[Rfam]
RNA: CRISPR RNA direct repeat element
Organism: Rhipicephalus sanguineus
RNA sequence: UUCUCAAUUCUUUCUGUGUUGUUAC
Numbered sequence: 001u002u003c004u005c006a007a008u009u010c011u012u013u014c015u016g017u018g019u020u021g022u023u024a025c
Base pairs, nucleotide, nucleotide: 005021006020007019008018